[Rfam]
RNA sequence: GUCUUGGUCGGAAACCAAGGCGCCUGAAAAGGAG
Numbered sequence: 001g002u003c004u005u006g007g008u009c010g011g012a013a014a015c016c017a018a019g020g021c022g023c024c025u026g027a028a029a030a031g032g033a034g
Stems, first nucleotide, its partner, number of pairs: 001021008